[Rfam]
RNA: Small nucleolar RNA U83B
RNA sequence: GCAUUUCUGUGAGUACUGUCUGGGACCCGUGUCUGGCACAGUCGCAGAAUUAGCUGAGAUAACUUUCCCGAGUCCCUUACUUCCCAGAAAUGC
Numbered sequence: 001g002c003a004u005u006u007c008u009g010u011g012a013g014u015a016c017u018g019u020c021u022g023g024g025a026c027c028c029g030u031g032u033c034u035g036g037c038a039c040a041g042u043c044g045c046a047g048a049a050u051u052a053g054c055u056g057a058g059a060u061a062a063c064u065u066u067c068c069c070g071a072g073u074c075c076c077u078u079a080c081u082u083c084c085c086a087g088a089a090a091u092g093c
Stems, first nucleotide, its partner, number of pairs: 001093005